Notes: Shown here is a 115-nucleotide RNA, a member of the family "Small nucleolar RNA Z278".

RNA sequence: GCCGAUGAUGAGUUGCCCAAUGUUUAGAGGGUGUAGUUGGCUCAAGUUCCUGUUUACCAGGUAGAACCUACUUGCAGCUGCUGCAUUCACGUGAUAUCAAUGGGCUUCCUGAGGU
Numbered sequence: 001g002c003c004g005a006u007g008a009u010g011a012g013u014u015g016c017c018c019a020a021u022g023u024u025u026a027g028a029g030g031g032u033g034u035a036g037u038u039g040g041c042u043c044a045a046g047u048u049c050c051u052g053u054u055u056a057c058c059a060g061g062u063a064g065a066a067c068c069u070a071c072u073u074g075c076a077g078c079u080g081c082u083g084c085a086u087u088c089a090c091g092u093g094a095u096a097u098c099a100a101u102g103g104g105c106u107u108c109c110u111g112a113g114g115u
Stems, first nucleotide, its partner, number of pairs: 001115003049061004
On this family, see Chen et al., Nucleic Acids Res 2003: "The high diversity of snoRNAs in plants: identification and comparative study of 120 snoRNA genes from Oryza sativa".
snoZ278 is a C/D box small nucleolar RNA. Its methylation guide targets have not been reported.
The base pairs follow the family's consensus structure, which was predicted with PFOLD.